[Rfam]
RNA sequence: CAGCAAUCUGGGGGCUGUAACCCAGGGGCGGUAGCUAU
Numbered sequence: 001c002a003g004c005a006a007u008c009u010g011g012g013g014g015c016u017g018u019a020a021c022c023c024a025g026g027g028g029c030g031g032u033a034g035c036u037a038u
Stems, first nucleotide, its partner, number of pairs: 008025005
Rfam assigns this 38-nucleotide sequence from Aeromonas hydrophila to the family "JUMPstart RNA".
Rfam 15.1 lists 288 matches to the family in 230 species.
Taxonomically the source falls in Aeromonas hydrophila subsp. hydrophila (Bacteria, Pseudomonadati, Gammaproteobacteria, Aeromonas).